[Rfam]
RNA sequence: GGUUACGAGCGUCAGCGUCAAGCCCUGGCUUGCUGACCGGCAACCCUCGUCCGCGGUGGGGUGCUCCAGGUGACGACCCGACAGGACGUCCGUCCUGUAAGCGCGAGGC
Numbered sequence: 001g002g003u004u005a006c007g008a009g010c011g012u013c014a015g016c017g018u019c020a021a022g023c024c025c026u027g028g029c030u031u032g033c034u035g036a037c038c039g040g041c042a043a044c045c046c047u048c049g050u051c052c053g054c055g056g057u058g059g060g061g062u063g064c065u066c067c068a069g070g071u072g073a074c075g076a077c078c079c080g081a082c083a084g085g086a087c088g089u090c091c092g093u094c095c096u097g098u099a100a101g102c103g104c105g106a107g108g109c
Base pairs, nucleotide, nucleotide: 001078002077003076004075009038011037012036013035014034015033016032021030022029039065040064041063044061045060046059048056081098082097083096084095085094086093087092
This 109-nucleotide sequence from Streptomyces sp. 846.5 belongs to the Rfam family "SAM (S-adenosyl methionine) riboswitch aptamer". The base pairs follow the family's consensus structure, which is taken from published work. The match comes from Rfam's covariance-model search (95 bits).